[Rfam]
RNA sequence: AAUAAAUAAGGGCACAGUAGAGGAAACUCUAUGUCGCAAAGCUACGGGUCUAAGGGCGGGUAGCGCCUAAGAUUGCCGAGUUGCUAAA
Numbered sequence: 001a002a003u004a005a006a007u008a009a010g011g012g013c014a015c016a017g018u019a020g021a022g023g024a025a026a027c028u029c030u031a032u033g034u035c036g037c038a039a040a041g042c043u044a045c046g047g048g049u050c051u052a053a054g055g056g057c058g059g060g061u062a063g064c065g066c067c068u069a070a071g072a073u074u075g076c077c078g079a080g081u082u083g084c085u086a087a088a
Stems, first nucleotide, its partner, number of pairs: 012037002017032006040082004045078003048073003055067004
RNA: c-di-GMP-I riboswitch aptamer
Organism: Paenalicyclobacillus ferrooxydans